[Rfam]
RNA: U11 spliceosomal RNA
RNA sequence: AAAAAGGGCUUCUGCCGUGCGUGGCACGGGGGGGCCGCGCGCCACCUCUGCGGAAUCGACAUCAAGAGAUUUCGGAAGCACAAUUUUUGCGCGUCAGGGUCGCUGGUAACCGCCAGUUCCGGCACCCGG
Numbered sequence: 001a002a003a004a005a006g007g008g009c010u011u012c013u014g015c016c017g018u019g020c021g022u023g024g025c026a027c028g029g030g031g032g033g034g035c036c037g038c039g040c041g042c043c044a045c046c047u048c049u050g051c052g053g054a055a056u057c058g059a060c061a062u063c064a065a066g067a068g069a070u071u072u073c074g075g076a077a078g079c080a081c082a083a084u085u086u087u088u089g090c091g092c093g094u095c096a097g098g099g100u101c102g103c104u105g106g107u108a109a110c111c112g113c114c115a116g117u118u119c120c121g122g123c124a125c126c127c128g129g
Stems, first nucleotide, its partner, number of pairs: 008079005013026005027050006034043001036041001051074007097127004102123005108118003